[Rfam]
RNA sequence: AGGGAAUUUUGAGUUAGCCUCUCCUAGGCUUUGUCUGUAGCUCAGAUAAUUGGACAUAGCCUAGUUGGGGUUAACUUUUGAGCCUUCA
Number, nucleotide and partner (000 for none) at each position: 001a000002g000003g000004g000005a000006a000007u000008u000009u000010u000011g000012a076013g075014u074015u073016a072017g071018c070019c069020u068021c000022u000023c000024c000025u000026a000027g061028g060029c059030u058031u000032u056033g055034u054035c053036u052037g000038u000039a000040g000041c000042u000043c000044a000045g000046a000047u000048a000049a000050u000051u000052g036053g035054a034055c033056a032057u000058a030059g029060c028061c027062u000063a000064g000065u000066u000067g000068g020069g019070g018071u017072u016073a015074a014075c013076u012077u000078u000079u000080g000081a000082g000083c000084c000085u000086u000087c000088a000
RNA: mir-282 microRNA precursor family
Organism: Ceutorhynchus assimilis